[Rfam]
RNA sequence: UCUGGCGAUGAUGACACACUUGCCCUCACUGAGAACGGUGCUCGGUGGUGAGAGCUUCAUGGUGCUCGCUGAGCCAGC
Numbered sequence: 001u002c003u004g005g006c007g008a009u010g011a012u013g014a015c016a017c018a019c020u021u022g023c024c025c026u027c028a029c030u031g032a033g034a035a036c037g038g039u040g041c042u043c044g045g046u047g048g049u050g051a052g053a054g055c056u057u058c059a060u061g062g063u064g065c066u067c068g069c070u071g072a073g074c075c076a077g078c
Stems, first nucleotide, its partner, number of pairs: 002077005